A member of the RNA family "c-di-AMP riboswitch aptamer (ydaO/yuaA leader)" from Crossiella cryophila, 152 nucleotides long. A search with the family's covariance model found it, with a score of 70 bits.
RNA sequence: CGCGAGACACCGCCGAAUCGGCUUGUCGGGGGCCGAACCGGGGACCCAGGCAGUUGGGGUGAAUCGGGCGGGCCUGUACCUGGGCGCCGCGCGUAGGGCGACUUCGGGCCCGAACCCGUCAGCUAACCCGGUAAGCGGUAGCGAGCACGAAG
Numbered sequence: 001c002g003c004g005a006g007a008c009a010c011c012g013c014c015g016a017a018u019c020g021g022c023u024u025g026u027c028g029g030g031g032g033c034c035g036a037a038c039c040g041g042g043g044a045c046c047c048a049g050g051c052a053g054u055u056g057g058g059g060u061g062a063a064u065c066g067g068g069c070g071g072g073c074c075u076g077u078a079c080c081u082g083g084g085c086g087c088c089g090c091g092c093g094u095a096g097g098g099c100g101a102c103u104u105c106g107g108g109c110c111c112g113a114a115c116c117c118g119u120c121a122g123c124u125a126a127c128c129c130g131g132u133a134a135g136c137g138g139u140a141g142c143g144a145g146c147a148c149g150a151a152g
Stems, first nucleotide, its partner, number of pairs: 011137003018036006037132006047056002057117003065093002068090004096111004